[Rfam]
RNA sequence: GAGGAGGGGGCCGUUACACUGUCAGAGAUGUAGUCUGAGGGUCUCACAGUGAACCGGUCUCUUUUCCUGCUG
Numbered sequence: 001g002a003g004g005a006g007g008g009g010g011c012c013g014u015u016a017c018a019c020u021g022u023c024a025g026a027g028a029u030g031u032a033g034u035c036u037g038a039g040g041g042u043c044u045c046a047c048a049g050u051g052a053a054c055c056g057g058u059c060u061c062u063u064u065u066c067c068u069g070c071u072g
Stems, first nucleotide, its partner, number of pairs: 001067001007061007017051006025045003